Shown here is a 130-nucleotide RNA from Christiangramia salexigens, a member of the family "6S-Flavo RNA". A search with the family's covariance model found it, with a score of 94 bits. It is annotated as a small RNA. Lineage of the source: Bacteria > Pseudomonadati > Flavobacteriia > Flavobacteriales > Christiangramia. The base pairs follow the family's consensus structure, which is taken from published work.
RNA sequence: ACUCAACACGAAUUCUUUAAAAAGGAUAAGUCUAAGUUGUAAAAGCGGGCCGUGUCCUUUCCGGGUAACCGGAAAAGGAGAGCGGAUUCUUGAUCAACUUGUUAGUCCUAAACUUGAUUUUAAGGAGUUU
Numbered sequence: 001a002c003u004c005a006a007c008a009c010g011a012a013u014u015c016u017u018u019a020a021a022a023a024g025g026a027u028a029a030g031u032c033u034a035a036g037u038u039g040u041a042a043a044a045g046c047g048g049g050c051c052g053u054g055u056c057c058u059u060u061c062c063g064g065g066u067a068a069c070c071g072g073a074a075a076a077g078g079a080g081a082g083c084g085g086a087u088u089c090u091u092g093a094u095c096a097a098c099u100u101g102u103u104a105g106u107c108c109u110a111a112a113c114u115u116g117a118u119u120u121u122a123a124g125g126a127g128u129u130u
Base pairs, nucleotide, nucleotide: 023109024108025107026106027105034100035099036098037097038096043091044090045089050085051084052083053082